[Rfam]
A member of the RNA family "Small nucleolar RNA R66" from Phtheirospermum japonicum, 70 nucleotides long. Gene Ontology terms of the family: nucleolus and RNA processing. snoR66 is a C/D box small nucleolar RNA, which acts as a methylation guide for 18S ribosomal RNA in plants. snoR66 has been alternatively named snoZ269 in rice. For this family Rfam cites "The high diversity of snoRNAs in plants: identification and comparative study of 120 snoRNA genes from Oryza sativa" (Chen et al., Nucleic Acids Res, 2003). NCBI's taxonomy places the organism under Eukaryota, Spermatophyta, Magnoliopsida, asterids, Phtheirospermum. It is annotated as a C/D-box small nucleolar RNA.
RNA sequence: UCUAAUGAUGGCAUGUAUUUUUUAGACCUGAUUGUCAAUUUGAUGAAAACUAUAAGCAUUUUUUGUUGGU
Number, nucleotide and partner (000 for none) at each position: 001u069002c068003u000004a000005a000006u000007g000008a000009u000010g000011g000012c000013a000014u000015g000016u000017a000018u000019u000020u000021u000022u000023u000024a000025g000026a000027c000028c000029u000030g000031a041032u038033u037034g000035u000036c000037a033038a032039u000040u000041u031042g000043a000044u000045g000046a000047a000048a000049a000050c000051u000052a000053u000054a000055a000056g000057c000058a000059u000060u000061u000062u000063u000064u000065g000066u000067u000068g002069g001070u000